[Rfam]
RNA sequence: CGUCUUGCGCCCCCCCGAACCGCGCCCUAUAUUGGCUUUGUCCGGGGCAACCCGGACUAUGGCGAUAAACGCACCUGUAAUAAUCGGCUCGGACCCGGGGGCGGUACCCGGCGGCUCCACCAGACUUUCCCGUUCAUUGCGGGCGUGUGGGGCCGAAAUAGGAUCGACGAACGACCAAAGAGGCCAGCUUUCGCUCGGUGAGGUACCACCGUUAUCGGUCCAAGAUCACAGUUGCCAAUGACAACCGUGCUCCGGUGGCGCUGGCUGCGUAAGCAGCUCGCAAUACCAAACCUAAGCCCUUCCGCUUAGCCGCGUAAGGCGGGGUCCGCAGGUACCUGGCAACAGAAACCUGCACC
Numbered sequence: 001c002g003u004c005u006u007g008c009g010c011c012c013c014c015c016c017g018a019a020c021c022g023c024g025c026c027c028u029a030u031a032u033u034g035g036c037u038u039u040g041u042c043c044g045g046g047g048c049a050a051c052c053c054g055g056a057c058u059a060u061g062g063c064g065a066u067a068a069a070c071g072c073a074c075c076u077g078u079a080a081u082a083a084u085c086g087g088c089u090c091g092g093a094c095c096c097g098g099g100g101g102c103g104g105u106a107c108c109c110g111g112c113g114g115c116u117c118c119a120c121c122a123g124a125c126u127u128u129c130c131c132g133u134u135c136a137u138u139g140c141g142g143g144c145g146u147g148u149g150g151g152g153c154c155g156a157a158a159u160a161g162g163a164u165c166g167a168c169g170a171a172c173g174a175c176c177a178a179a180g181a182g183g184c185c186a187g188c189u190u191u192c193g194c195u196c197g198g199u200g201a202g203g204u205a206c207c208a209c210c211g212u213u214a215u216c217g218g219u220c221c222a223a224g225a226u227c228a229c230a231g232u233u234g235c236c237a238a239u240g241a242c243a244a245c246c247g248u249g250c251u252c253c254g255g256u257g258g259c260g261c262u263g264g265c266u267g268c269g270u271a272a273g274c275a276g277c278u279c280g281c282a283a284u285a286c287c288a289a290a291c292c293u294a295a296g297c298c299c300u301u302c303c304g305c306u307u308a309g310c311c312g313c314g315u316a317a318g319g320c321g322g323g324g325u326c327c328g329c330a331g332g333u334a335c336c337u338g339g340c341a342a343c344a345g346a347a348a349c350c351u352g353c354a355c356c
Stems, first nucleotide, its partner, number of pairs: 040057007061195005071188002074183003085173002089170003095111005112155007196211004202221002205219003322337004328353006

A member of the RNA family "Alphaproteobacteria transfer-messenger RNA" from Pseudogemmobacter blasticus, 356 nucleotides long.
Clan: tRNA clan.
Rfam classes the family as a non-coding RNA gene.
The literature on the family includes a 1996 paper in RNA by Williams and Bartel, "Phylogenetic analysis of tmRNA secondary structure".